Ascomycota telomerase RNA: a 394-nucleotide part of an RNA from Cordyceps fumosorosea. Its family is annotated with telomerase catalytic core complex, telomere maintenance via telomerase and telomerase activity in the Gene Ontology. Lineage of the source: Eukaryota > Dikarya > Pezizomycotina > sordariomyceta > Cordyceps fumosorosea. Clan: Telomerase clan.
RNA sequence: UACACACAGAACAAGUCAAGAUUAGCUAGCACCACCGUGGGCAUGGGAACAUGAAUGGCUGGGCUGGGCGUUGGAGGUAUGCGGGCUGAUGACGGCGGCGAGUUGGUACGGUUUCGGCACGGGGCGAGCCGAGUGAUGUCAUGUCUGCUCGGGCCCAAUCGAGCAGUCAGCACGAACCAAGAAGCACUGCUGGGACCCAUCUCGCGUUGGAGUCAAAGUUUCGUGCUUGUCCGGCACUGUGGGCUGGCGGAGCUGACUGGGAGGUUGGGCCAUGCCUUACGGCGCUUUUGGUGCUGAACUUAUUCGCCUGGAAAGGGCAGGCCUUGGGAUAUGGGCAGUCCUGGUUGUCUCGGCCGUCAGAAAUGUCGGACGGGACAACCCCCCGCGUCGGAGG
Numbered sequence: 001u002a003c004a005c006a007c008a009g010a011a012c013a014a015g016u017c018a019a020g021a022u023u024a025g026c027u028a029g030c031a032c033c034a035c036c037g038u039g040g041g042c043a044u045g046g047g048a049a050c051a052u053g054a055a056u057g058g059c060u061g062g063g064c065u066g067g068g069c070g071u072u073g074g075a076g077g078u079a080u081g082c083g084g085g086c087u088g089a090u091g092a093c094g095g096c097g098g099c100g101a102g103u104u105g106g107u108a109c110g111g112u113u114u115c116g117g118c119a120c121g122g123g124g125c126g127a128g129c130c131g132a133g134u135g136a137u138g139u140c141a142u143g144u145c146u147g148c149u150c151g152g153g154c155c156c157a158a159u160c161g162a163g164c165a166g167u168c169a170g171c172a173c174g175a176a177c178c179a180a181g182a183a184g185c186a187c188u189g190c191u192g193g194g195a196c197c198c199a200u201c202u203c204g205c206g207u208u209g210g211a212g213u214c215a216a217a218g219u220u221u222c223g224u225g226c227u228u229g230u231c232c233g234g235c236a237c238u239g240u241g242g243g244c245u246g247g248c249g250g251a252g253c254u255g256a257c258u259g260g261g262a263g264g265u266u267g268g269g270c271c272a273u274g275c276c277u278u279a280c281g282g283c284g285c286u287u288u289u290g291g292u293g294c295u296g297a298a299c300u301u302a303u304u305c306g307c308c309u310g311g312a313a314a315g316g317g318c319a320g321g322c323c324u325u326g327g328g329a330u331a332u333g334g335g336c337a338g339u340c341c342u343g344g345u346u347g348u349c350u351c352g353g354c355c356g357u358c359a360g361a362a363a364u365g366u367c368g369g370a371c372g373g374g375a376c377a378a379c380c381c382c383c384c385g386c387g388u389c390g391g392a393g394g
Stems, first nucleotide, its partner, number of pairs: 194214003197210003216228004
Dot-bracket structure: .................................................................................................................................................................................................((((((........))).))).((((.....))))......................................................................................................................................................................